[Rfam]
RNA sequence: AGAUCAGGCCUUUCAGGCAUCCUCUCCUAAAAACUUUACGGCCGGUCGCAUGACCGGCCUUUUUUUUGGUCCGG
Numbered sequence: 001a002g003a004u005c006a007g008g009c010c011u012u013u014c015a016g017g018c019a020u021c022c023u024c025u026c027c028u029a030a031a032a033a034c035u036u037u038a039c040g041g042c043c044g045g046u047c048g049c050a051u052g053a054c055c056g057g058c059c060u061u062u063u064u065u066u067u068g069g070u071c072c073g074g
Base pairs, nucleotide, nucleotide: 008018009017010016011015040059041058042057043056044055045054046053047052
Dot-bracket structure: .......((((...)))).....................((((((((....))))))))...............